[Rfam]
RNA sequence: AAAACAAUUAUAGCGCCUGAGCUAAGGAAAUUGAGCGGAAAAACAAUCCUUAGUUGACGAGGUGGAGGAUUAUCGAAAAUUCGGCGGAUACCUCCCAAUCGCACAUGCCCGAUUGUAUGUUUCAUUUUUAAAACAGAGAAGUAAUUCUUUGCACAGAAAAAUGAAAAGGCAUCAAA
Numbered sequence: 001a002a003a004a005c006a007a008u009u010a011u012a013g014c015g016c017c018u019g020a021g022c023u024a025a026g027g028a029a030a031u032u033g034a035g036c037g038g039a040a041a042a043a044c045a046a047u048c049c050u051u052a053g054u055u056g057a058c059g060a061g062g063u064g065g066a067g068g069a070u071u072a073u074c075g076a077a078a079a080u081u082c083g084g085c086g087g088a089u090a091c092c093u094c095c096c097a098a099u100c101g102c103a104c105a106u107g108c109c110c111g112a113u114u115g116u117a118u119g120u121u122u123c124a125u126u127u128u129u130a131a132a133a134c135a136g137a138g139a140a141g142u143a144a145u146u147c148u149u150u151g152c153a154c155a156g157a158a159a160a161a162u163g164a165a166a167a168g169g170c171a172u173c174a175a176a
Base pairs, nucleotide, nucleotide: 020055021054022053023052024051025050026049027048029047064095065094066093067092068091073084074083075082076081096115097114098113099112100111101110120166121165122164123163124162125161126160134151135150136149137148138147139146140145
Shown here is a 176-nucleotide RNA from Lysinibacillus sp. 2017, a member of the family "glmS glucosamine-6-phosphate activated ribozyme aptamer". The organism belongs to Lysinibacillus, within Bacteria. This entry contains a glucosamine-6-phosphate activated ribozyme that is found in the mRNA for GlmS. GlmS is an enzyme that uses fructose-6-phosphate and glutamine to generate glucosamine-6-phosphate. The ribozyme catalyses self cleavage of the glmS mRNA that is thought to regulate GlmS activity. It is annotated as a riboswitch. Pairs were carried over by alignment from the consensus structure, which is taken from published work.